[Rfam]
RNA: mir-5856 microRNA precursor family
RNA sequence: AAGAAGCAACUCCGUGUGUAGCAUUCGGUAUGAGAGUGUAUACCGAAUGCUACACACAGAGUUGCUUCUA
Numbered sequence: 001a002a003g004a005a006g007c008a009a010c011u012c013c014g015u016g017u018g019u020a021g022c023a024u025u026c027g028g029u030a031u032g033a034g035a036g037u038g039u040a041u042a043c044c045g046a047a048u049g050c051u052a053c054a055c056a057c058a059g060a061g062u063u064g065c066u067u068c069u070a
Stems, first nucleotide, its partner, number of pairs: 002069011014057018